This 386-nucleotide sequence from Ichthyobacterium seriolicida belongs to the Rfam family "Bacterial RNase P class A".
The source organism's lineage runs through Bacteria, Pseudomonadati, Flavobacteriales, Ichthyobacteriaceae and Ichthyobacterium.
Rfam classes the family as a ribozyme.
[Rfam]
RNA sequence: UGGGCAAGCUAUCUUAUCGCUGGUAUUAUUUUUUUAGUAUCAGAGGAAAGUCUGGACACCAGAGAGUAUCACACUUCUUAAUUAGGAAGGAUUUUUUAACUAAAAUACAGAUAGUGCCACAGAAAAUAACCGCCUUAUUUUUAGGUAAGGGUGAAAAAGUGAGGUAAGAGCUCACUACUUUAUCUAGCGAUAGCUAAAGUGGGUAAACCUUGUGAGGUGAAAUGUCAAGUAUAUUGGAAAGUUAUUUUAACAUAGAGUUACUCGCUCUAUUCCAAGGGGUAGGCAGAUAGAGGUUUUUAGUGAUAAAAAUCGUAGAUAAAUGAUAAGAGUUAUACUAUAAAUCAUAGUAUGAUUACAGAAUCCGGCUUAUAAGGCUUGUCCAUUUU
Numbered sequence: 001u002g003g004g005c006a007a008g009c010u011a012u013c014u015u016a017u018c019g020c021u022g023g024u025a026u027u028a029u030u031u032u033u034u035u036a037g038u039a040u041c042a043g044a045g046g047a048a049a050g051u052c053u054g055g056a057c058a059c060c061a062g063a064g065a066g067u068a069u070c071a072c073a074c075u076u077c078u079u080a081a082u083u084a085g086g087a088a089g090g091a092u093u094u095u096u097u098a099a100c101u102a103a104a105a106u107a108c109a110g111a112u113a114g115u116g117c118c119a120c121a122g123a124a125a126a127u128a129a130c131c132g133c134c135u136u137a138u139u140u141u142u143a144g145g146u147a148a149g150g151g152u153g154a155a156a157a158a159g160u161g162a163g164g165u166a167a168g169a170g171c172u173c174a175c176u177a178c179u180u181u182a183u184c185u186a187g188c189g190a191u192a193g194c195u196a197a198a199g200u201g202g203g204u205a206a207a208c209c210u211u212g213u214g215a216g217g218u219g220a221a222a223u224g225u226c227a228a229g230u231a232u233a234u235u236g237g238a239a240a241g242u243u244a245u246u247u248u249a250a251c252a253u254a255g256a257g258u259u260a261c262u263c264g265c266u267c268u269a270u271u272c273c274a275a276g277g278g279g280u281a282g283g284c285a286g287a288u289a290g291a292g293g294u295u296u297u298u299a300g301u302g303a304u305a306a307a308a309a310u311c312g313u314a315g316a317u318a319a320a321u322g323a324u325a326a327g328a329g330u331u332a333u334a335c336u337a338u339a340a341a342u343c344a345u346a347g348u349a350u351g352a353u354u355a356c357a358g359a360a361u362c363c364g365g366c367u368u369a370u371a372a373g374g375c376u377u378g379u380c381c382a383u384u385u386u
Base pairs, nucleotide, nucleotide: 001382002381003380004379005378006377007376008375009374010373011370012328013327014326015325016324017323018322020043021042022041023040024039025038026037027036028035048368049367050366052365053364054363055362056361057219058218059217060216064263065262066261067260069215070214071213072212073211074089075088076087077086078084090108091106092105093104094103109210110209114208115207116204117203118202130150131149132146133145134144135143137141158176159175160174161173162172163171179198180197181196182195184193185192186191223285224284225283226282234275235274236273237272238271254268255267256266257265258264292311293310294309295308296307297306298305299304
The match comes from Rfam's covariance-model search (223 bits).